[Rfam]
Shown here is a 78-nucleotide sequence from Aedes aegypti, a member of the family "mir-999 microRNA precursor family". Gene Ontology terms of the family: RISC complex and miRNA-mediated post-transcriptional gene silencing.

RNA sequence: GCAGGGACGCGGUCGUGCAGGAAAUUAUUUGGCAUUAGAUUCAAAUGUUAACUGUAAGACUGUGUCUUUGCGGGUGAU
Numbered sequence: 001g002c003a004g005g006g007a008c009g010c011g012g013u014c015g016u017g018c019a020g021g022a023a024a025u026u027a028u029u030u031g032g033c034a035u036u037a038g039a040u041u042c043a044a045a046u047g048u049u050a051a052c053u054g055u056a057a058g059a060c061u062g063u064g065u066c067u068u069u070g071c072g073g074g075u076g077a078u
Stems, first nucleotide, its partner, number of pairs: 001071004006066009016056005023049003027046004